[Rfam]
RNA sequence: CGCUUCGAGGAGCGUUGCGACGGUUUGUAUCAAUACACGGAAAACUUUCCGGAAAACCGCCAGGCUCGAAGCAUUCAAUCGGACGGAGCGACCAGCGCGGGUCAUUAAUCAAGCGCUUGUUGAACCACCGCAUCGAACGGCGCUCACGUCAA
Number, nucleotide and partner (000 for none) at each position: 001c000002g072003c071004u070005u069006c068007g067008a066009g000010g000011a000012g000013c000014g000015u000016u000017g000018c000019g000020a000021c059022g058023g057024u056025u055026u054027g000028u000029a000030u000031c000032a000033a000034u000035a000036c000037a000038c000039g000040g000041a000042a000043a000044a000045c000046u000047u000048u000049c000050c000051g000052g000053a000054a026055a025056a024057c023058c022059g021060c000061c000062a000063g000064g000065c000066u008067c007068g006069a005070a004071g003072c002073a000074u000075u000076c000077a000078a000079u000080c000081g000082g000083a000084c000085g000086g000087a000088g000089c000090g000091a000092c000093c000094a000095g000096c000097g000098c000099g000100g000101g000102u000103c000104a000105u000106u000107a000108a000109u000110c000111a000112a000113g000114c000115g000116c000117u000118u000119g000120u000121u000122g000123a000124a000125c000126c000127a000128c000129c000130g000131c000132a000133u000134c000135g000136a000137a000138c000139g000140g000141c000142g000143c000144u000145c000146a000147c000148g000149u000150c000151a000152a000
A member of the RNA family "SAH (S-adenosyl-L-homocysteine) riboswitch aptamer" from Burkholderia sp. Leaf177, 152 nucleotides long. The family's consensus secondary structure is taken from published work. The source organism's lineage runs through Bacteria, Pseudomonadota, Burkholderiales, Burkholderiaceae and Burkholderia. For this family Rfam cites "Riboswitches that sense S-adenosylhomocysteine and activate genes involved in coenzyme recycling" (Wang et al., Mol Cell, 2008). A search with the family's covariance model found it, with a score of 51 bits.